[Rfam]
RNA sequence: CCCCCGCUUUUCCUCCCUGAGCGGGGCCUUGAUGUGUGACAGCAAAAAGGCUUUCUUCCCCGGCCCUGUGCCGGGGUUUUUUUU
Numbered sequence: 001c002c003c004c005c006g007c008u009u010u011u012c013c014u015c016c017c018u019g020a021g022c023g024g025g026g027c028c029u030u031g032a033u034g035u036g037u038g039a040c041a042g043c044a045a046a047a048a049g050g051c052u053u054u055c056u057u058c059c060c061c062g063g064c065c066c067u068g069u070g071c072c073g074g075g076g077u078u079u080u081u082u083u084u
Base pairs, nucleotide, nucleotide: 003025004024005023006022007021008020028050029049030048033044034043035042058076059075060074061073062072063071064070
Background: A member of the RNA family "Burkholderia RNA 7 (anti-hemB)" from Tibeticola sediminis, 84 nucleotides long. On this family, see Khoo et al., BMC Genomics 2012: "Computational discovery and RT-PCR validation of novel Burkholderia conserved and Burkholderia pseudomallei unique sRNAs". This RNA motif was identified by computational search in b-proteobacteria Burkholderia.